[Rfam]
RNA sequence: UUGAAGAUGCAGACUCGAAGAUUUCAAUUUGCAGACUUGAAGAAUUUGAAAACUUCAACUUGCAUACUUGAAAGAUUUGAAGACUUCAGCU
Numbered sequence: 001u002u003g004a005a006g007a008u009g010c011a012g013a014c015u016c017g018a019a020g021a022u023u024u025c026a027a028u029u030u031g032c033a034g035a036c037u038u039g040a041a042g043a044a045u046u047u048g049a050a051a052a053c054u055u056c057a058a059c060u061u062g063c064a065u066a067c068u069u070g071a072a073a074g075a076u077u078u079g080a081a082g083a084c085u086u087c088a089g090c091u
Stems, first nucleotide, its partner, number of pairs: 001089006015080005022073005030064004037058006

MIR8024 microRNA precursor family: a 91-nucleotide RNA sequence from Solanum commersonii. Rfam links the family to the GO terms RISC complex and miRNA-mediated post-transcriptional gene silencing. The organism belongs to Solanum, within Eukaryota. Rfam 15.1 lists 661 matches to the family in 8 species.